Background: This 79-nucleotide RNA from Tricholaema leucomelas belongs to the Rfam family "Small nucleolar RNA SNORD79". About the family: snoRNA U79 or Z22 is found in intron 7 of the gas5 gene in humans and is also present in mice. The family has 28 seed sequences and 784 matches in Rfam 15.1. Clan: SNORD74 clan. Taxonomically the source falls in Tricholaema lacrymosa (Eukaryota, Gnathostomata, Saurischia, Neoaves). A search with the family's covariance model found it, with a score of 74 bits.
RNA sequence: UACUGUUUGUGAUGAUUCAACUAAAACAAUGGGAAUCUCUCUGAAAGAGGCUGAGGAGGACUUCUGCACUGAAACAGUA
Dot-bracket structure: (((((((.................................................................)))))))